[Rfam]
RNA: U12 minor spliceosomal RNA
RNA sequence: AAGGCUUAAACUUAUGAGCAAGGAAAAUAGCGAUUCGGGGUGACUCUCAAAUCCUCACUGCUAAUGUGAGACAAAGUUUUGAGCAGGUAAAUGUUGCCCCUAAGGUGACCACGCGCCUACUUUGCGGGAUGCCUGGGAGUCACGAUCUGCCCG
Numbered sequence: 001a002a003g004g005c006u007u008a009a010a011c012u013u014a015u016g017a018g019c020a021a022g023g024a025a026a027a028u029a030g031c032g033a034u035u036c037g038g039g040g041u042g043a044c045u046c047u048c049a050a051a052u053c054c055u056c057a058c059u060g061c062u063a064a065u066g067u068g069a070g071a072c073a074a075a076g077u078u079u080u081g082a083g084c085a086g087g088u089a090a091a092u093g094u095u096g097c098c099c100c101u102a103a104g105g106u107g108a109c110c111a112c113g114c115g116c117c118u119a120c121u122u123u124g125c126g127g128g129a130u131g132c133c134u135g136g137g138a139g140u141c142a143c144g145a146u147c148u149g150c151c152c153g
Base pairs, nucleotide, nucleotide: 005022006021007020032053033052034051035050037048038047039046054070055069056068057067058066084153086151087150088149091148093146094145095144096143100137101136103134104133105132106131107130112128114126115125116124